[Rfam]
RNA sequence: GGAAUAUAAGAACCUAUCUCUUAAUUCUUAAUUAAAAAAGCUAAGAACUGGUUCUUAAAUAAGAGUUUUAAGAGUCUUUUAACUUUUAACUAAAAAAUUUAAGGACCGGUUCUUAGCUUUUUUAGUUAAAAGUUAAGAGACGGGUUCUUAUAUUCC
Numbered sequence: 001g002g003a004a005u006a007u008a009a010g011a012a013c014c015u016a017u018c019u020c021u022u023a024a025u026u027c028u029u030a031a032u033u034a035a036a037a038a039a040g041c042u043a044a045g046a047a048c049u050g051g052u053u054c055u056u057a058a059a060u061a062a063g064a065g066u067u068u069u070a071a072g073a074g075u076c077u078u079u080u081a082a083c084u085u086u087u088a089a090c091u092a093a094a095a096a097a098u099u100u101a102a103g104g105a106c107c108g109g110u111u112c113u114u115a116g117c118u119u120u121u122u123u124a125g126u127u128a129a130a131a132g133u134u135a136a137g138a139g140a141c142g143g144g145u146u147c148u149u150a151u152a153u154u155c156c
Stems, first nucleotide, its partner, number of pairs: 001156015017140010028129012041116020
This 156-nucleotide sequence from Brassica carinata belongs to the Rfam family "MIR9563 microRNA precursor family". The organism belongs to Brassica, within Eukaryota. Gene Ontology terms of the family: RISC complex and miRNA-mediated post-transcriptional gene silencing.